This 69-nucleotide RNA sequence from Enhydra lutris belongs to the Rfam family "Small nucleolar RNA SNORD2".
On this family, see Zhou et al., Gene 2004: "Identification of a novel box C/D snoRNA from mouse nucleolar cDNA library".
Rfam 15.1 lists 1,116 matches to the family in 660 species.
By type it is a C/D-box small nucleolar RNA.

RNA sequence: UAGUGAAAUGAUGGCAGUUACCUUUCAGGACUGGCCUGAAACGAAGAGAAUACUCAUUCCUGAUCACUU
Numbered sequence: 001u002a003g004u005g006a007a008a009u010g011a012u013g014g015c016a017g018u019u020a021c022c023u024u025u026c027a028g029g030a031c032u033g034g035c036c037u038g039a040a041a042c043g044a045a046g047a048g049a050a051u052a053c054u055c056a057u058u059c060c061u062g063a064u065c066a067c068u069u
Stems, first nucleotide, its partner, number of pairs: 002068005